[Rfam]
RNA sequence: AGAUGAGAGAUACACCCCGCCCACGGGAAACCGUGGACGGACCCAGGCCGGGGCCUCCCCAGCUUCGACCUGGUCGUGCCCUCGCGCACACAACCGGAGCUCCGGCUCCGGAUCUCCACCGAUCGGA
Numbered sequence: 001a002g003a004u005g006a007g008a009g010a011u012a013c014a015c016c017c018c019g020c021c022c023a024c025g026g027g028a029a030a031c032c033g034u035g036g037a038c039g040g041a042c043c044c045a046g047g048c049c050g051g052g053g054c055c056u057c058c059c060c061a062g063c064u065u066c067g068a069c070c071u072g073g074u075c076g077u078g079c080c081c082u083c084g085c086g087c088a089c090a091c092a093a094c095c096g097g098a099g100c101u102c103c104g105g106c107u108c109c110g111g112a113u114c115u116c117c118a119c120c121g122a123u124c125g126g127a
Stems, first nucleotide, its partner, number of pairs: 004118002007115001009114002017040003021036006043073005049067006076089004094111007119126002
This 127-nucleotide RNA from Streptomyces sp. yr375 belongs to the Rfam family "Streptomyces RNA 5676". Taxonomically the source falls in Streptomyces (Bacteria, Actinomycetota, Actinomycetes, Kitasatosporales). For this family Rfam cites "Deep sequencing-based identification of small non-coding RNAs in Streptomyces coelicolor" (Vockenhuber et al., RNA Biol, 2011). The base pairs follow the family's consensus structure. A search with the family's covariance model found it, with a score of 123 bits. Identified by deep sequencing of transcriptome at the end of exponential growth phase. Appears longer on northern blot than sequencing transcript. This indicates processing step. Streptomyces specific. The family's RNA type in Rfam is small RNA.